[Rfam]
RNA sequence: GGUUCAGUAGCUCAGUUGGAUAGAGCAACUGCCUUCUAAGCAGUCGGCCGCUGGUUCGAGUCCAGCCUGAAUCG
Numbered sequence: 001g002g003u004u005c006a007g008u009a010g011c012u013c014a015g016u017u018g019g020a021u022a023g024a025g026c027a028a029c030u031g032c033c034u035u036c037u038a039a040g041c042a043g044u045c046g047g048c049c050g051c052u053g054g055u056u057c058g059a060g061u062c063c064a065g066c067c068u069g070a071a072u073c074g
Base pairs, nucleotide, nucleotide: 001073002072003071004070005069006068007067010026011025012024013023028044029043030042031041032040050066051065052064053063054062